[Rfam]
RNA sequence: CUUUAAACCCGAUUGCAGCGAAAAUACUUUUUGUUGCACCAACGCAAGGAAAAAACCUCGUAGGUUUCAAAAACCUACGAGGUUUAAGGGGCAGUAGCGACAACAAAAAGAUUGUAGCGUAAAGCGGGACUUGAG
Number, nucleotide and partner (000 for none) at each position: 001c000002u000003u000004u000005a000006a000007a000008c000009c127010c126011g125012a000013u123014u122015g000016c000017a000018g118019c117020g000021a000022a000023a113024a112025u111026a000027c000028u000029u108030u107031u106032u105033g104034u103035u102036g101037c000038a000039c000040c000041a000042a000043c000044g000045c000046a000047a000048g000049g000050a000051a000052a000053a000054a000055a000056c000057c000058u000059c000060g000061u000062a000063g000064g000065u000066u000067u000068c000069a000070a000071a000072a000073a000074c000075c000076u000077a000078c000079g000080a000081g000082g000083u000084u000085u000086a000087a000088g000089g000090g000091g000092c000093a000094g000095u000096a000097g000098c000099g000100a000101c036102a035103a034104c033105a032106a031107a030108a029109a000110g000111a025112u024113u023114g000115u000116a000117g019118c018119g000120u000121a000122a014123a013124g000125c011126g010127g009128g000129a000130c000131u000132u000133g000134a000135g000
RNA: Flavo-1 RNA